[Rfam]
A member of the RNA family "Small nucleolar RNA SNORA15" from Panthera tigris, 162 nucleotides long. About the family: ACA15 is a member of the H/ACA class of snoRNA that guide the sites of modification of uridines to pseudouridines. Gene Ontology terms of the family: nucleolus and RNA processing. A search with the family's covariance model found it, with a score of 54 bits. A reference for the family is Huttenhofer et al. (2001), "RNomics: an experimental approach that identifies 201 candidates for novel, small, non-messenger RNAs in mouse", EMBO J. Pairs were carried over by alignment from the consensus structure, which was predicted with RNAfold.
RNA sequence: GCAUGGCUGAAUGCGUGUUCUUUUCACCAGUUUUUUACAUAGCCAGACAUCAUGCAGAAAAAAAAAAAAAAACUGGGGGGAGUGGCAUUCUUCCCUUUAAAGUCGUUCAGGUGAUAUGGUAAGCUUUUUCAUGGUAUAUCAUUAUUAAAGGGAAAUACAACU
Numbered sequence: 001g002c003a004u005g006g007c008u009g010a011a012u013g014c015g016u017g018u019u020c021u022u023u024u025c026a027c028c029a030g031u032u033u034u035u036u037a038c039a040u041a042g043c044c045a046g047a048c049a050u051c052a053u054g055c056a057g058a059a060a061a062a063a064a065a066a067a068a069a070a071a072a073c074u075g076g077g078g079g080g081a082g083u084g085g086c087a088u089u090c091u092u093c094c095c096u097u098u099a100a101a102g103u104c105g106u107u108c109a110g111g112u113g114a115u116a117u118g119g120u121a122a123g124c125u126u127u128u129u130c131a132u133g134g135u136a137u138a139u140c141a142u143u144a145u146u147a148a149a150g151g152g153a154a155a156u157a158c159a160a161c162u
Stems, first nucleotide, its partner, number of pairs: 001055006014042001015040004091155002094151007110143009120133002